Shown here is a 172-nucleotide RNA sequence from Burkholderiales bacterium PBB3, a member of the family "Group II catalytic intron D1-D4-3". The source organism's lineage runs through Bacteria, Pseudomonadati, Pseudomonadota, Betaproteobacteria and Burkholderiales. Rfam describes the family as follows. Group II introns are found in rRNA, tRNA and mRNA of organelles in fungi, plants and protists, and also in mRNA in bacteria.
RNA sequence: AUGAGGGCGACCAAGUGCGGGAAAGAAGCGUGGAGCAUAAGUCGCGAGCCGGUGAACAAGAACCGCAUCGAGGGUGCUGCCAAGCAGGGCGAGUGGGCCAAAGACCACGAAGCUCUUUCGACCAAGGCGAGGUGGCGUAGAUGCGGCGGUUGUACGAUGAAGGAGUGCGUUC
Numbered sequence: 001a002u003g004a005g006g007g008c009g010a011c012c013a014a015g016u017g018c019g020g021g022a023a024a025g026a027a028g029c030g031u032g033g034a035g036c037a038u039a040a041g042u043c044g045c046g047a048g049c050c051g052g053u054g055a056a057c058a059a060g061a062a063c064c065g066c067a068u069c070g071a072g073g074g075u076g077c078u079g080c081c082a083a084g085c086a087g088g089g090c091g092a093g094u095g096g097g098c099c100a101a102a103g104a105c106c107a108c109g110a111a112g113c114u115c116u117u118u119c120g121a122c123c124a125a126g127g128c129g130a131g132g133u134g135g136c137g138u139a140g141a142u143g144c145g146g147c148g149g150u151u152g153u154a155c156g157a158u159g160a161a162g163g164a165g166u167g168c169g170u171u172c
Stems, first nucleotide, its partner, number of pairs: 001016002005012002028172001030170003036163001041158004046153001047151005063146006074138003078134001080132002084128002087115004093108004